[Rfam]
RNA: TPP riboswitch aptamer (THI element)
Organism: Nesterenkonia cremea
RNA sequence: CUUGUCCGACAGGGGAGCGUCCGCCGCAGGCAUGCGGCCAGGCGCUGAGAGUGGGCUCAUGGCCCAGACCCUAGAACCUGCCCAGGUUAGAACCUGCGAAGGAAGUCGCAUAUGCCUAUCU
Number, nucleotide and partner (000 for none) at each position: 001c000002u000003u000004g000005u000006c000007c108008g107009a106010c105011a072012g071013g070014g069015g000016a000017g045018c044019g043020u042021c041022c000023g000024c000025c000026g000027c000028a000029g000030g000031c000032a000033u000034g000035c000036g000037g000038c000039c000040a000041g021042g020043c019044g018045c017046u000047g000048a000049g000050a000051g000052u066053g065054g064055g063056c062057u000058c000059a000060u000061g000062g056063c055064c054065c053066a052067g000068a000069c014070c013071c012072u011073a000074g000075a000076a000077c102078c101079u100080g000081c000082c000083c096084a095085g094086g093087u000088u000089a000090g000091a000092a000093c086094c085095u084096g083097c000098g000099a000100a079101g078102g077103a000104a000105g010106u009107c008108g007109c000110a000111u000112a000113u000114g000115c000116c000117u000118a000119u000120c000121u000